[Rfam]
RNA sequence: GAAGUCGGUAUUCUCGGGUAAUGACAGUGUUCAAGUGCGUGUUAUUGCUUGAGAAUACAAAUUUC
Numbered sequence: 001g002a003a004g005u006c007g008g009u010a011u012u013c014u015c016g017g018g019u020a021a022u023g024a025c026a027g028u029g030u031u032c033a034a035g036u037g038c039g040u041g042u043u044a045u046u047g048c049u050u051g052a053g054a055a056u057a058c059a060a061a062u063u064u065c
Stems, first nucleotide, its partner, number of pairs: 008058006017049010
The record is a 65-nucleotide sequence from Panagrellus redivivus, which matches "mir-234 microRNA precursor family" in Rfam. The base pairs follow the family's consensus structure, which was predicted with RNAalifold. The literature on the family includes a 2003 paper in Genes Dev by Lim et al., "The microRNAs of Caenorhabditis elegans". Rfam 15.1 lists 45 matches to the family in 42 species. It scores 58 bits against the family's covariance model. Its Rfam clan is "mir-137 clan". Gene Ontology terms of the family: miRNA-mediated post-transcriptional gene silencing and RISC complex.